[Rfam]
This 103-nucleotide RNA from Octodon degus belongs to the Rfam family "mir-999 microRNA precursor family". A search with the family's covariance model found it, with a score of 62 bits. The organism belongs to Octodon, within Eukaryota. A reference for the family is Stark et al. (2007), "Systematic discovery and characterization of fly microRNAs using 12 Drosophila genomes", Genome Res. Gene Ontology terms of the family: RISC complex and miRNA-mediated post-transcriptional gene silencing.

RNA sequence: AUCAUUUUCUGUGACACUGACUCACAGCUAGCUUCAGAAAUAGAGAUGUCCCACACAUCUCUAUUUCUGAAGCUAGCUGUGAGUCAGUGUCACAGAAAAUGAU
Numbered sequence: 001a002u003c004a005u006u007u008u009c010u011g012u013g014a015c016a017c018u019g020a021c022u023c024a025c026a027g028c029u030a031g032c033u034u035c036a037g038a039a040a041u042a043g044a045g046a047u048g049u050c051c052c053a054c055a056c057a058u059c060u061c062u063a064u065u066u067c068u069g070a071a072g073c074u075a076g077c078u079g080u081g082a083g084u085c086a087g088u089g090u091c092a093c094a095g096a097a098a099a100u101g102a103u
Stems, first nucleotide, its partner, number of pairs: 003101009013091009023081006030074018